Rfam assigns this 201-nucleotide sequence from Vagococcus allomyrinae to the family "Enterococcus sRNA 2410". The match comes from Rfam's covariance-model search (67 bits). A reference for the family is Sinel et al. (2017), "Small RNAs in vancomycin-resistant Enterococcus faecium involved in daptomycin response and resistance", Sci Rep. NCBI's taxonomy places the organism under Bacteria, Bacillota, Bacilli, Enterococcaceae, Vagococcus. Rfam classes the family as a small RNA. From the family's description: Produced as 2 transcripts on Northern blot. Expressed in mid, late exponential and early stationary phases of growth. Expression remained uniform under daptomycin exposure. Rfam 15.1 lists 74 matches to the family in 56 species.
RNA sequence: UUAGCUUCUUUAGGUAGUGUUUGUAGUCAUGAGUCAUGGGUACAAACAAUGUUUUGUAUCUAUGUGGGCUAAAGAGUUUUGUCGUCAAGAUAAACGCCACGUAGGAUUUAAAAAUCUAAGUGGUGACUAAACAAUUUUAAGCGGAUAUUAAAUUGAGCAGCCAUUUAGAUAGCAGUAUCUAAAUGGCUUUUUAUAUAUAAA
Number, nucleotide and partner (000 for none) at each position: 001u072002u071003a070004g069005c068006u067007u066008c000009u000010u000011u062012a061013g060014g059015u058016a057017g000018u000019g047020u046021u045022u044023g043024u042025a041026g000027u039028c038029a037030u036031g000032a000033g000034u000035c000036a030037u029038g028039g027040g000041u025042a024043c023044a022045a021046a020047c019048a000049a000050u056051g055052u000053u000054u000055u051056g050057u016058a015059u014060c013061u012062a011063u000064g000065u000066g007067g006068g005069c004070u003071a002072a001073a000074g000075a000076g142077u141078u140079u139080u000081g137082u000083c000084g000085u133086c000087a000088a000089g000090a000091u000092a000093a000094a000095c125096g124097c123098c122099a121100c120101g000102u118103a117104g116105g000106a000107u000108u000109u000110a000111a000112a000113a000114a000115u000116c104117u103118a102119a000120g100121u099122g098123g097124u096125g095126a000127c000128u000129a000130a000131a000132c000133a085134a000135u000136u000137u081138u000139a079140a078141g077142c076143g000144g179145a178146u177147a176148u175149u174150a000151a000152a000153u000154u000155g000156a000157g000158c000159a000160g000161c000162c000163a000164u000165u000166u000167a000168g000169a000170u000171a000172g000173c000174a149175g148176u147177a146178u145179c144180u000181a000182a000183a000184u000185g000186g000187c000188u000189u000190u000191u000192u000193a000194u000195a000196u000197a000198u000199a000200a000201a000